RNA sequence: AUCUGUAUGCAAUGAGGACAAAUAAGCUCCCUCUUCUGAAGACAUUGAGGACGCUUGCUGGCAGAAUCGAACCAAUAAACCUAUUGCCACCACUGAGCUA
Numbered sequence: 001a002u003c004u005g006u007a008u009g010c011a012a013u014g015a016g017g018a019c020a021a022a023u024a025a026g027c028u029c030c031c032u033c034u035u036c037u038g039a040a041g042a043c044a045u046u047g048a049g050g051a052c053g054c055u056u057g058c059u060g061g062c063a064g065a066a067u068c069g070a071a072c073c074a075a076u077a078a079a080c081c082u083a084u085u086g087c088c089a090c091c092a093c094u095g096a097g098c099u100a
Base pairs, nucleotide, nucleotide: 006100007099009098010097
The record is a 100-nucleotide RNA from Setaria viridis, which matches "Small nucleolar RNA R30/Z108" in Rfam. NCBI's taxonomy places the organism under Eukaryota, Streptophytina, Embryophyta, Tracheophyta, Setaria. Rfam's curators write: snoR30 is a C/D box small nucleolar RNA which acts as a methylation guide for 18S ribosomal RNA in plants. The family's RNA type in Rfam is C/D-box small nucleolar RNA. On this family, see Marker et al., Curr Biol 2002: "Experimental RNomics. Identification of 140 Candidates for Small Non-Messenger RNAs in the Plant Arabidopsis thaliana". Gene Ontology terms of the family: nucleolus and RNA processing.